Nucleotides: 235
Base pairs, nucleotide, nucleotide: 001157002156003155004154005153013146014145015144016143025135026134029132030131031130035051036050037049038048039047052117053116054115055114056113057112058111158173159172160171161170
Number, partner (000 for none) and nucleotide at each position: 001157g002156g003155a004154c005153a006000u007000a008000a009000a010000c011000g012000c013146g014145c015144u016143c017000g018000u019000a020000a021000u022000a023000a024000g025135c026134g027000g028000a029132u030131c031130g032000g033000a034000c035051c036050c037049g038048g039047g040000g041000g042000c043000g044000g045000u046000a047039c048038c049037c050036g051035g052117c053116g054115u055114c056113u057112c058111c059000a060000c061000c062000a063000a064000a065000u066000a067000c068000c069000c070000c071000u072000c073000u074000u075000c076000g077000a078000u079000c080000u081000u082000c083000g084000u085000u086000u087000g088000a089000g090000a091000u092000c093000g094000g095000c096000a097000a098000g099000a100000g101000a102000u103000u104000g105000g106000a107000u108000c109000a110000u111058g112057g113056g114055g115054a116053c117052g118000a119000a120000a121000u122000a123000g124000g125000a126000u127000c128000g129000a130031c131030g132029g133000a134026c135025g136000u137000c138000u139000a140000a141000a142000g143016g144015g145014g146013u147000u148000u149000g150000c151000u152000u153005u154004g155003u156002c157001u158173c159172g160171g161170u162000g163000a164000g165000a166000u167000a168000c169000c170161a171160c172159c173158g174000u175000u176000a177000u178000c179000g180000g181000u182000u183000c184000a185000c186000u187000u188000a189000a190000g191000c192000u193000a194000g195000u196000u197000g198000c199000a200000a201000a202000c203000g204000a205000c206000a207000a208000c209000a210000a211000a212000g213000c214000u215000c216000c217000g218000a219000u220000g221000g222000c223000u224000c225000u226000c227000g228000c229000a230000g231000c232000g233000u234000a235000a
The family of this 235-nucleotide RNA from Celeribacter neptunius is "permuted transfer-messenger RNA". From the family's description: Bacterial tmRNA, also known as 10Sa RNA or SsrA, is named for its dual tRNA and mRNA-like properties. The organism belongs to Celeribacter, within Bacteria. Its family is annotated with RNA catabolic process in the Gene Ontology.